mir-399 microRNA precursor family: a 116-nucleotide RNA from Leersia perrieri. Rfam links the family to the GO terms miRNA-mediated post-transcriptional gene silencing and RISC complex. From the family's description: mir-399 was identified in both Arabidopsis thaliana and Oryza sativa computationally and was later experimentally verified. mir-399 is thought to target mRNAs coding for a phosphatase transporter. The mature sequence is excised from the 3' arm of the hairpin. Rfam 15.1 lists 2,396 matches to the family in 221 species. A reference for the family is Jones-Rhoades and Bartel (2004), "Computational Identification of Plant MicroRNAs and Their Targets, Including a Stress-Induced miRNA", Mol Cell.

RNA sequence: CAAUGAAUGGCAGGGCAGCUCUCCUUUGGCAGGGAAAGGCUUGCAGUUUAUCAUCCAUUAAUUAUUCAGCUUUUCUUGCCCUCCAUGCCAGAGGAGAACUGCACUGUGAUUCUCAC
Number, nucleotide and partner (000 for none) at each position: 001c000002a000003a000004u000005g112006a111007a110008u109009g000010g000011c106012a105013g104014g000015g102016c101017a100018g099019c000020u000021c096022u095023c094024c093025u000026u000027u090028g089029g088030c087031a086032g000033g084034g083035a082036a000037a000038g000039g000040c000041u000042u000043g000044c000045a000046g000047u000048u000049u000050a000051u000052c000053a000054u000055c000056c000057a000058u000059u000060a000061a000062u000063u000064a000065u000066u000067c000068a000069g000070c000071u000072u000073u000074u000075c000076u000077u000078g000079c000080c000081c000082u035083c034084c033085a000086u031087g030088c029089c028090a027091g000092a000093g024094g023095a022096g021097a000098a000099c018100u017101g016102c015103a000104c013105u012106g011107u000108g000109a008110u007111u006112c005113u000114c000115a000116c000